[Rfam]
RNA: cow-rumen-3 RNA
RNA sequence: GGAUCGUAGCUAAUGACUACCAUCUUCGGGGUUAAGAUACCAGCAUCAAUAUGGUACUGAAUACUAGUUGUAUCUUUUCUGCCGAUUCUCCAGUAUGAGUAAAAACUACCGUUUGGGCUGCGUGAAACGCGCCGGGUCCACC
Numbered sequence: 001g002g003a004u005c006g007u008a009g010c011u012a013a014u015g016a017c018u019a020c021c022a023u024c025u026u027c028g029g030g031g032u033u034a035a036g037a038u039a040c041c042a043g044c045a046u047c048a049a050u051a052u053g054g055u056a057c058u059g060a061a062u063a064c065u066a067g068u069u070g071u072a073u074c075u076u077u078u079c080u081g082c083c084g085a086u087u088c089u090c091c092a093g094u095a096u097g098a099g100u101a102a103a104a105a106c107u108a109c110c111g112u113u114u115g116g117g118c119u120g121c122g123u124g125a126a127a128c129g130c131g132c133c134g135g136g137u138c139c140a141c142c
Base pairs, nucleotide, nucleotide: 001025002024003023004022006020007019008018009017030080031079034076035075036074037073038072039071040070041059042058043057045055046054047053088099089098090097114140115139116138117137118136119135120132121131122130123129
Dot-bracket structure: ((((.((((.......)))).))))....((..((((((((((.(((.....))).)))..........)))))))..)).......(((......)))..............((((((((((.....))))..))))))..